[Rfam]
RNA sequence: GACCGUCGACACGGGAGUCCGGAGAGCGGACUGAGAGUGGGCACACCGGCUGACGCACCUGCCCUGACCGUCGAACCUGAUCCGGGUCAUGCCGGCGAAGGGAGGGGAGAAGAUGUCUCA
Numbered sequence: 001g002a003c004c005g006u007c008g009a010c011a012c013g014g015g016a017g018u019c020c021g022g023a024g025a026g027c028g029g030a031c032u033g034a035g036a037g038u039g040g041g042c043a044c045a046c047c048g049g050c051u052g053a054c055g056c057a058c059c060u061g062c063c064c065u066g067a068c069c070g071u072c073g074a075a076c077c078u079g080a081u082c083c084g085g086g087u088c089a090u091g092c093c094g095g096c097g098a099a100g101g102g103a104g105g106g107g108a109g110a111a112g113a114u115g116u117c118u119c120a
Stems, first nucleotide, its partner, number of pairs: 006108002010104001011071004016065001017031005039064004076101003082095004